ALIL pseudoknot: a 114-nucleotide RNA sequence from Actinotalea ferrariae. The organism belongs to Actinotalea ferrariae, within Bacteria. Gene Ontology term of the family: positive regulation of translational frameshifting.
Nucleotides: 114
Base pairs, nucleotide, nucleotide: 013029014028015027016026017025075114076113077112078111079110086109087108089106090105091104092103093102095100
Number, partner (000 for none) and nucleotide at each position: 001000g002000g003000c004000u005000u006000u007000c008000u009000u010000c011000g012000c013029g014028g015027c016026g017025g018000a019000g020000c021000u022000c023000g024000a025017c026016c027015g028014c029013c030000c031000a032000c033000a034000a035000c036000g037000g038000u039000g040000a041000u042000c043000g044000u045000g046000g047000a048000g049000u050000u051000c052000a053000u054000c055000g056000a057000c058000g059000a060000g061000c062000a063000c064000a065000a066000g067000g068000a069000c070000g071000a072000g073000u074000u075114c076113g077112g078111g079110g080000u081000c082000g083000a084000g085000c086109c087108g088000a089106u090105c091104u092103g093102c094000c095100g096000u097000g098000a099000u100095c101000u102093g103092c104091a105090g106089g107000u108087c109086g110079c111078c112077c113076c114075g